[Rfam]
RNA sequence: UUUAAGCAUCAAGAGACUGAUUAGAUUCAGCACCAACCGAUAACAGAAACACGGUGGUAAAAAGGAUGCGAUUAGUUUAACACUAAUAAACUUCUGAUUAUGA
Number, nucleotide and partner (000 for none) at each position: 001u000002u000003u000004a000005a000006g069007c068008a067009u066010c065011a000012a000013g000014a000015g031016a000017c030018u029019g028020a027021u000022u000023a000024g000025a000026u000027u020028c019029a018030g017031c015032a058033c057034c056035a000036a000037c054038c053039g052040a000041u049042a000043a000044c000045a098046g000047a000048a000049a041050c000051a000052c039053g038054g037055u000056g034057g033058u032059a000060a000061a000062a000063a000064g000065g010066a009067u008068g007069c006070g000071a087072u086073u085074a084075g083076u082077u000078u000079a000080a000081c000082a076083c075084u074085a073086a072087u071088a000089a000090a000091c000092u000093u000094c000095u000096g000097a000098u045099u000100a000101u000102g000103a000

A member of the RNA family "SAM-I/IV (S-adenosyl methionine) riboswitch aptamer" from Prevotella sp. 885, 103 nucleotides long.